[Rfam]
RNA sequence: UAACCAUGAGCAAGUCUCUUACGACCAGCUCCCUUUAAAUCCCCCAGGAUGGGAACAUAGCAAGGGUAGAAGGUUGUAGCGGUGCGAUAAGAAUCGCUUGCUCACCC
Dot-bracket structure: .......((((((((.(((((((((........................................................)).)).)))))...))))))))....
Numbered sequence: 001u002a003a004c005c006a007u008g009a010g011c012a013a014g015u016c017u018c019u020u021a022c023g024a025c026c027a028g029c030u031c032c033c034u035u036u037a038a039a040u041c042c043c044c045c046a047g048g049a050u051g052g053g054a055a056c057a058u059a060g061c062a063a064g065g066g067u068a069g070a071a072g073g074u075u076g077u078a079g080c081g082g083u084g085c086g087a088u089a090a091g092a093a094u095c096g097c098u099u100g101c102u103c104a105c106c107c
Stems, first nucleotide, its partner, number of pairs: 008103008017092005022086002024083002
Bacteroidales small SRP: a 107-nucleotide RNA sequence from Prevotella bivia. Its family is annotated with signal recognition particle, plasma membrane targeting and SRP-dependent cotranslational protein targeting to membrane, signal sequence recognition in the Gene Ontology. Its Rfam clan is "SRP clan". For this family Rfam cites "A high-resolution transcriptome map identifies small RNA regulation of metabolism in the gut microbe Bacteroides thetaiotaomicron" (Ryan et al., Nat Commun, 2020). The family's RNA type in Rfam is non-coding RNA gene. The base pairs follow the family's consensus structure, which is taken from published work.